[Rfam]
The family of this 66-nucleotide RNA sequence from Apostasia shenzhenica is "Small nucleolar RNA U49".
Lineage of the source: Eukaryota > Magnoliopsida > Petrosaviidae > Apostasioideae > Apostasia.
It scores 37 bits against the family's covariance model.

RNA sequence: UCUAAGGUAGGAAGAAAAGACUUGGGAUAGGAAGUGCUGUAUGACACUUGAAACAUCUACUCCAUU
Numbered sequence: 001u002c003u004a005a006g007g008u009a010g011g012a013a014g015a016a017a018a019g020a021c022u023u024g025g026g027a028u029a030g031g032a033a034g035u036g037c038u039g040u041a042u043g044a045c046a047c048u049u050g051a052a053a054c055a056u057c058u059a060c061u062c063c064a065u066u
Base pairs, nucleotide, nucleotide: 014060032049033048034047035046036045
Clan: SNORD49 clan. Rfam links the family to the GO terms nucleolus and RNA processing.